Nucleotides: 094
Base pairs, nucleotide, nucleotide: 012037013036017032018031019030020029021028022027040088041087042086043085045084046083047082048079049078050077055073056072057071058070059069060068061067
Number, partner (000 for none) and nucleotide at each position: 001000a002000a003000u004000a005000a006000c007000u008000a009000a010000a011000g012037g013036c014000a015000a016000a017032c018031a019030u020029u021028g022027c023000g024000a025000a026000a027022g028021c029020a030019a031018u032017g033000g034000a035000c036013g037012c038000a039000a040088a041087g042086c043085u044000a045084c046083g047082g048079g049078u050077c051000u052000a053000c054000c055073g056072c057071u058070u059069a060068u061067c062000c063000u064000u065000c066000c067061g068060a069059u070058a071057a072056g073055c074000u075000a076000c077050g078049a079048u080000c081000g082047c083046c084045g085043g086042g087041u088040u089000a090000c091000c092000g093000a094000u
A member of the RNA family "c-di-GMP-I riboswitch aptamer" from Paenibacillus antri, 94 nucleotides long. It scores 77 bits against the family's covariance model. Its Rfam clan is "c-di-GMP_I riboswitch clan". Taxonomically the source falls in Paenibacillus (Bacteria, Bacillati, Bacilli, Paenibacillaceae).